[Rfam]
RNA sequence: CUUAUAUCAGUGACAGUGCUCACUAUAUUGG
Numbered sequence: 001c002u003u004a005u006a007u008c009a010g011u012g013a014c015a016g017u018g019c020u021c022a023c024u025a026u027a028u029u030g031g
Stems, first nucleotide, its partner, number of pairs: 001031002004028004009024005014018001
RNA: Iron response element II
Organism: Phoenix dactylifera